[Rfam]
RNA sequence: AAAAGGGAAAGGCAAACCAAUCUAAAGGUUGGGACGCAAAGCCUCCGGUCUAAGGGCAAUGCCUAGGAUAGCGGGGACACCGCA
Dot-bracket structure: ...........((...((((((....))))))...))....((.((((((....(((...)))...)))..)))))........
RNA: c-di-GMP-I riboswitch aptamer
Organism: Shewanella salipaludis